[Rfam]
The record is a 369-nucleotide RNA sequence from Parahalioglobus pacificus, which matches "Bacterial RNase P class A" in Rfam. Taxonomically the source falls in Parahalioglobus (Bacteria, Pseudomonadati, Gammaproteobacteria, Halieaceae). It scores 331 bits against the family's covariance model.
RNA sequence: GGAGUGAGUCAGGCGAUCGCUCCCGAUGUAUUUCGGGGGAGGAAAGUCCGGGCUCCGAAGGGCAGGGUGCCAGGUAACGCCUGGGGGGCGCGAGCCCACGGAAAGUGCAGCAGAAAGGAAACCGCCUCGAUUCACUGGUUGCGGCUCGCCGCAAUCAGCGGGGUAAGGGUGAAAAGGUGCGGUAAGAGCGCACCGCGUGACUGGUAACAGGCACGGCGAUGGUAAACCCCACCCGGAGCAAGACCAAAUAGGAACCCGUUAGCUGUGGCCCGCAGUGGGUUCGGGUAGGUCGCUUCAGGCAGACGGCGACGUCUGUCGCAGAUGAAUGGUCGUCCACGACAGAACCCGGCUUAUCGACUCACUCCUUUA
Numbered sequence: 001g002g003a004g005u006g007a008g009u010c011a012g013g014c015g016a017u018c019g020c021u022c023c024c025g026a027u028g029u030a031u032u033u034c035g036g037g038g039g040a041g042g043a044a045a046g047u048c049c050g051g052g053c054u055c056c057g058a059a060g061g062g063c064a065g066g067g068u069g070c071c072a073g074g075u076a077a078c079g080c081c082u083g084g085g086g087g088g089c090g091c092g093a094g095c096c097c098a099c100g101g102a103a104a105g106u107g108c109a110g111c112a113g114a115a116a117g118g119a120a121a122c123c124g125c126c127u128c129g130a131u132u133c134a135c136u137g138g139u140u141g142c143g144g145c146u147c148g149c150c151g152c153a154a155u156c157a158g159c160g161g162g163g164u165a166a167g168g169g170u171g172a173a174a175a176g177g178u179g180c181g182g183u184a185a186g187a188g189c190g191c192a193c194c195g196c197g198u199g200a201c202u203g204g205u206a207a208c209a210g211g212c213a214c215g216g217c218g219a220u221g222g223u224a225a226a227c228c229c230c231a232c233c234c235g236g237a238g239c240a241a242g243a244c245c246a247a248a249u250a251g252g253a254a255c256c257c258g259u260u261a262g263c264u265g266u267g268g269c270c271c272g273c274a275g276u277g278g279g280u281u282c283g284g285g286u287a288g289g290u291c292g293c294u295u296c297a298g299g300c301a302g303a304c305g306g307c308g309a310c311g312u313c314u315g316u317c318g319c320a321g322a323u324g325a326a327u328g329g330u331c332g333u334c335c336a337c338g339a340c341a342g343a344a345c346c347c348g349g350c351u352u353a354u355c356g357a358c359u360c361a362c363u364c365c366u367u368u369a
Base pairs, nucleotide, nucleotide: 001365002364003363004362005361006360007359008358009357010356011354012334013333014332015331016330017329018328020039021038022037023036024035025034026033044352045351046350048349049348050347051346052345053238054237055236056235060271061270062269063268065234066233067232068231069230070084071083072082073081074080085099086097087096088095089094100229101228105227106226107223108222122168123167124164125163126162127161128160129159131157176194177193178192179191180190181189195217196215197214198213199212201210202209203208242291243290244289245288252282253281254280255279256278257277262276263275264274265273266272298317299316300315301314302313303312304311305310